[Rfam]
RNA sequence: GUGAGGCGCGUCUAGGGUUCCGCCGAUUCGUCGGGUUUGGUCCGAGAGACGCAGGCGGUUCGGCGAUGACGCCGCGCCGUUCCACGGCGGGAUAAAAGCCCGGGAGAC
Numbered sequence: 001g002u003g004a005g006g007c008g009c010g011u012c013u014a015g016g017g018u019u020c021c022g023c024c025g026a027u028u029c030g031u032c033g034g035g036u037u038u039g040g041u042c043c044g045a046g047a048g049a050c051g052c053a054g055g056c057g058g059u060u061c062g063g064c065g066a067u068g069a070c071g072c073c074g075c076g077c078c079g080u081u082c083c084a085c086g087g088c089g090g091g092a093u094a095a096a097a098g099c100c101c102g103g104g105a106g107a108c
Stems, first nucleotide, its partner, number of pairs: 008052005015043002020040002022037001023034004054081006061074004083103001085106001089101003
The record is a 108-nucleotide RNA sequence from Mycolicibacterium agri, which matches "Guanidine-I riboswitch aptamer" in Rfam. Taxonomically the source falls in Mycobacterium (subgen. Mycolicibacterium) (Bacteria, Bacillati, Actinomycetes, Mycobacteriaceae). This family represents a conserved RNA structure found upstream of the ykkC and yxkD genes in Bacillus subtilis and related genes in other bacteria.